RNA sequence: AACAAUCACAUAUUUGUACCGCAGACAGCAGGGGCCUUCAGUGCUUAAUCAUCCUGCCGAGGUCAUGAUCAUUUCAGGUUAUCCUUUAAAUGAGACUGAUUUAUGCCUCCGCGUCUGUGACCGGAGGCUUUUCUUAUAGCGGU
Numbered sequence: 001a002a003c004a005a006u007c008a009c010a011u012a013u014u015u016g017u018a019c020c021g022c023a024g025a026c027a028g029c030a031g032g033g034g035c036c037u038u039c040a041g042u043g044c045u046u047a048a049u050c051a052u053c054c055u056g057c058c059g060a061g062g063u064c065a066u067g068a069u070c071a072u073u074u075c076a077g078g079u080u081a082u083c084c085u086u087u088a089a090a091u092g093a094g095a096c097u098g099a100u101u102u103a104u105g106c107c108u109c110c111g112c113g114u115c116u117g118u119g120a121c122c123g124g125a126g127g128c129u130u131u132u133c134u135u136a137u138a139g140c141g142g143u
Base pairs, nucleotide, nucleotide: 028057029056030055031054032053033052034044035043105128106127107126108125109124110123111122114119
Dot-bracket structure: ...........................((((((((.......)).......))))))...............................................(((((((..(....)..)))))))...............